[Rfam]
RNA sequence: UGCCCGGUCUUUGCCCCGGAUCAACUUUAAUAGUUAUGACGGUUUCCGACUCGGGAAAAUAGAUUCUUGCAUAACGACGGAAAUUUCAGAGUUUGUUCUGAAUGUCUCCAGUCGAUGUGCAAUACAAUU
Numbered sequence: 001u002g003c004c005c006g007g008u009c010u011u012u013g014c015c016c017c018g019g020a021u022c023a024a025c026u027u028u029a030a031u032a033g034u035u036a037u038g039a040c041g042g043u044u045u046c047c048g049a050c051u052c053g054g055g056a057a058a059a060u061a062g063a064u065u066c067u068u069g070c071a072u073a074a075c076g077a078c079g080g081a082a083a084u085u086u087c088a089g090a091g092u093u094u095g096u097u098c099u100g101a102a103u104g105u106c107u108c109c110a111g112u113c114g115a116u117g118u119g120c121a122a123u124a125c126a127a128u129u
Stems, first nucleotide, its partner, number of pairs: 003055004007050003016042003023035004067122007075114004079109003085102003089098002
Caenorhabditis snoRNA ceN43: a 129-nucleotide RNA from Caenorhabditis elegans. The family's RNA type in Rfam is H/ACA-box small nucleolar RNA. A reference for the family is Jia et al. (2007), "Systematic identification of non-coding RNA 2,2,7-trimethylguanosine cap structures in Caenorhabditis elegans", BMC Mol Biol. The source organism's lineage runs through Eukaryota, Opisthokonta, Nematoda, Rhabditomorpha and Caenorhabditis. Rfam links the family to the GO terms nucleolus and RNA processing.